Lysine riboswitch aptamer: a 174-nucleotide RNA sequence from Lachnospiraceae bacterium 28-4.
[Rfam]
RNA sequence: AGAAGAGAUAGAGGUUGCGUAUUUUAUUAGUAGUUUUUCGGAUGUGGCAGGCACAGGAGAAGAAAAAUGAAAGGAAAAGACGCCGAAAGAGCAGGACGCGCUGUAGUUUUGUUCUUGGGCAUACAGCGAAUAACUGUAUGACUGUCAUCGAUACGAUGGGGCGCUAUCCGAGGU
Numbered sequence: 001a002g003a004a005g006a007g008a009u010a011g012a013g014g015u016u017g018c019g020u021a022u023u024u025u026a027u028u029a030g031u032a033g034u035u036u037u038u039c040g041g042a043u044g045u046g047g048c049a050g051g052c053a054c055a056g057g058a059g060a061a062g063a064a065a066a067a068u069g070a071a072a073g074g075a076a077a078a079g080a081c082g083c084c085g086a087a088a089g090a091g092c093a094g095g096a097c098g099c100g101c102u103g104u105a106g107u108u109u110u111g112u113u114c115u116u117g118g119g120c121a122u123a124c125a126g127c128g129a130a131u132a133a134c135u136g137u138a139u140g141a142c143u144g145u146c147a148u149c150g151a152u153a154c155g156a157u158g159g160g161g162c163g164c165u166a167u168c169c170g171a172g173g174u
Base pairs, nucleotide, nucleotide: 007168008167009166010165011164017083018082019081020080022078023077024076025075033068034067035066036065037064038063039062087116088115089114090113091112092111093110094109095108096107097106117143118142120140121139122138123137124136125135126134145159146158147157148156149155150154
Rfam's curators write: Riboswitches are metabolite binding domains within certain messenger RNAs that serve as precision sensors for their corresponding targets. The base pairs follow the family's consensus structure, which is taken from published work. Lineage of the source: Bacteria > Bacillota > Clostridia > Lachnospirales > Lachnospiraceae.